RNA sequence: CAAGCUCAAGGGCUUUGAUUUGAUAUAUAAGAGCUCGCGAAGACACCAAUGGUAUGAGCGCGCCCGCUUCAAGGUGGGAGUCAGCACGGUGUCCUCCUCGGAGGGGGAUGAUGACGUGGCUGAUAAUGCGGGGCACAUCGCGUCAGGCGGGUAACCGAGCAUCGCUACAGCUCUAGCUCUCGCCAGUGAAGGGAUCACGCGCUCUUUUUUUUUU
Numbered sequence: 001c002a003a004g005c006u007c008a009a010g011g012g013c014u015u016u017g018a019u020u021u022g023a024u025a026u027a028u029a030a031g032a033g034c035u036c037g038c039g040a041a042g043a044c045a046c047c048a049a050u051g052g053u054a055u056g057a058g059c060g061c062g063c064c065c066g067c068u069u070c071a072a073g074g075u076g077g078g079a080g081u082c083a084g085c086a087c088g089g090u091g092u093c094c095u096c097c098u099c100g101g102a103g104g105g106g107g108a109u110g111a112u113g114a115c116g117u118g119g120c121u122g123a124u125a126a127u128g129c130g131g132g133g134c135a136c137a138u139c140g141c142g143u144c145a146g147g148c149g150g151g152u153a154a155c156c157g158a159g160c161a162u163c164g165c166u167a168c169a170g171c172u173c174u175a176g177c178u179c180u181c182g183c184c185a186g187u188g189a190a191g192g193g194a195u196c197a198c199g200c201g202c203u204c205u206u207u208u209u210u211u212u213u214u
Stems, first nucleotide, its partner, number of pairs: 039214003043211001045209001048206002056204007064193002067191005073184009082122004086117003090113004095108005124128001130174005140165003148157003
Background
The record is a 214-nucleotide RNA sequence from Selaginella moellendorffii, which matches "Protozoan signal recognition particle RNA" in Rfam. Lineage of the source: Eukaryota > Embryophyta > Lycopodiopsida > Selaginelloideae > Selaginella. By type it is a non-coding RNA gene. The literature on the family includes a 2002 paper in Curr Opin Struct Biol by Wild et al., "Towards the structure of the mammalian signal recognition particle".